mir-395 microRNA precursor family: a 122-nucleotide RNA from Prunus dulcis. Its family is annotated with RISC complex and miRNA-mediated post-transcriptional gene silencing in the Gene Ontology.
RNA sequence: GUGUCCCCUAGAGUUCCCCCGAACACUUCAUUGGGAUGUCUAACUCCCUUAAUUAAACUAAUUAAGGGAUAAGUUAUACUUACAAUCUCUACUGAAGUGUUUGGGGGAACUCCAGGUGUCAU
Numbered sequence: 001g002u003g004u005c006c007c008c009u010a011g012a013g014u015u016c017c018c019c020c021g022a023a024c025a026c027u028u029c030a031u032u033g034g035g036a037u038g039u040c041u042a043a044c045u046c047c048c049u050u051a052a053u054u055a056a057a058c059u060a061a062u063u064a065a066g067g068g069a070u071a072a073g074u075u076a077u078a079c080u081u082a083c084a085a086u087c088u089c090u091a092c093u094g095a096a097g098u099g100u101u102u103g104g105g106g107g108a109a110c111u112c113c114a115g116g117u118g119u120c121a122u
Stems, first nucleotide, its partner, number of pairs: 005118001007116003011112010022102002024099007032091004
A search with the family's covariance model found it, with a score of 76 bits.
The family's consensus secondary structure was predicted with PFOLD.